RNA: mir-929 microRNA precursor family
RNA sequence: AAGGAUCAAAUUGACUCUAGUAGGGAGUCUUUUAUUUUAUAUUGACUCCCUAAUGGAGUCAGAUUGACCCCGAC
Dot-bracket structure: ..........((((((((..(((((((((..............)))))))))..))))))))............